[Rfam]
RNA sequence: GGAUAAGCGAAUAUUGUUUCUCGUAUAAUUCCGGGAAUAUGGCCGGAAGUUUCUACCCAAGAACCGUAAAUUUUUGGACUACGGGAAUGACGAACAGGCAA
Numbered sequence: 001g002g003a004u005a006a007g008c009g010a011a012u013a014u015u016g017u018u019u020c021u022c023g024u025a026u027a028a029u030u031c032c033g034g035g036a037a038u039a040u041g042g043c044c045g046g047a048a049g050u051u052u053c054u055a056c057c058c059a060a061g062a063a064c065c066g067u068a069a070a071u072u073u074u075u076g077g078a079c080u081a082c083g084g085g086a087a088u089g090a091c092g093a094a095c096a097g098g099c100a101a
Stems, first nucleotide, its partner, number of pairs: 018087008029048006057077007
RNA: Purine riboswitch aptamer
Organism: Paenibacillus sp. KS1